Shown here is a 54-nucleotide RNA sequence from Salvelinus namaycush, a member of the family "UnaL2 LINE 3' element".
It is annotated as a cis-regulatory element.
The base pairs follow the family's consensus structure, which is taken from published work.
NCBI's taxonomy places the organism under Eukaryota, Euteleostomi, Neopterygii, Euteleosteomorpha, Salvelinus.
It scores 64 bits against the family's covariance model.
Rfam 15.1 lists 493,311 matches to the family in 99 species.
About the family: The eel long interspersed element (LINE) UnaL2 and its partner short interspersed element (SINE) share a conserved 3' tail containing a stem-loop that is critical for their retrotransposition.
RNA sequence: UCUGAAAAUGACUGCACGUCGCUCUGGAUAAGAGCGUCUGCUAAAUGACUAAAA
Numbered sequence: 001u002c003u004g005a006a007a008a009u010g011a012c013u014g015c016a017c018g019u020c021g022c023u024c025u026g027g028a029u030a031a032g033a034g035c036g037u038c039u040g041c042u043a044a045a046u047g048a049c050u051a052a053a054a
Stems, first nucleotide, its partner, number of pairs: 013043001014041003020036006